[Rfam]
RNA: ZMP/ZTP riboswitch aptamer (pfl RNA motif)
RNA sequence: AGCGUGGGCCGUGACUGGCGUGCUGGGAUGGGACCGACCAUCGGGAAGCGGCCCCCGGGACCCCGCGGGCCCGGCACGAGUGCCGUGCGCCUGGGCCGUACCG
Numbered sequence: 001a002g003c004g005u006g007g008g009c010c011g012u013g014a015c016u017g018g019c020g021u022g023c024u025g026g027g028a029u030g031g032g033a034c035c036g037a038c039c040a041u042c043g044g045g046a047a048g049c050g051g052c053c054c055c056c057g058g059g060a061c062c063c064c065g066c067g068g069g070c071c072c073g074g075c076a077c078g079a080g081u082g083c084c085g086u087g088c089g090c091c092u093g094g095g096c097c098g099u100a101c102c103g
Stems, first nucleotide, its partner, number of pairs: 003057002006054007015045002017091005028041004082096003